[Rfam]
RNA sequence: CUUGCGGGAUAAGUUUGUAUCGGCCUAAUGCCAUUUGCUAUGCAUUUCUGCUGAAAGUCUUUCCUGCUAUAUCAAUACGGAAAGUGGGCAGUUGGGUUAAGCAUUGUGCUUUCUUCAACAAUCAUUUUCCACUCAUCU
Numbered sequence: 001c002u003u004g005c006g007g008g009a010u011a012a013g014u015u016u017g018u019a020u021c022g023g024c025c026u027a028a029u030g031c032c033a034u035u036u037g038c039u040a041u042g043c044a045u046u047u048c049u050g051c052u053g054a055a056a057g058u059c060u061u062u063c064c065u066g067c068u069a070u071a072u073c074a075a076u077a078c079g080g081a082a083a084g085u086g087g088g089c090a091g092u093u094g095g096g097u098u099a100a101g102c103a104u105u106g107u108g109c110u111u112u113c114u115u116c117a118a119c120a121a122u123c124a125u126u127u128u129c130c131a132c133u134c135a136u137c138u
Stems, first nucleotide, its partner, number of pairs: 004067006016044005079130009091119004
Notes: A member of the RNA family "small nucleolar RNA snoR135" from Brachypodium distachyon, 138 nucleotides long. Taxonomically the source falls in Brachypodium (Eukaryota, Euphyllophyta, Spermatophyta, commelinids). The family has 6 seed sequences and 837 matches in Rfam 15.1. Rfam links the family to the GO terms RNA processing and nucleolus. Rfam classes the family as an H/ACA-box small nucleolar RNA. The match comes from Rfam's covariance-model search (92 bits).